LOOT RNA: a 124-nucleotide RNA sequence.
Nucleotides: 124
Stems, first nucleotide, its partner, number of pairs: 001036004010028003014024002043083009059073004085104008105124008
Number, partner (000 for none) and nucleotide at each position: 001036u002035g003034c004033c005000u006000a007000a008000c009000c010028c011027u012026c013000a014024u015023a016000g017000a018000u019000u020000c021000a022000u023015u024014a025000c026012g027011a028010g029000a030000u031000a032000u033004g034003g035002c036001a037000u038000a039000a040000a041000a042000a043083c044082u045081g046080u047079u048078c049077a050076g051075g052000c053000u054000a055000u056000u057000a058000a059073g060072c061071u062070c063000g064000u065000c066000g067000u068000c069000a070062g071061a072060g073059c074000a075051c076050c077049u078048g079047a080046a081045c082044a083043g084000u085104c086103a087102u088101a089100c090099c091098c092097c093000g094000a095000a096000a097092g098091g099090g100089g101088u102087a103086u104085g105124g106123g107122u108121a109120g110119u111118c112117c113000g114000c115000a116000a117112g118111g119110a120109u121108u122107a123106u124105c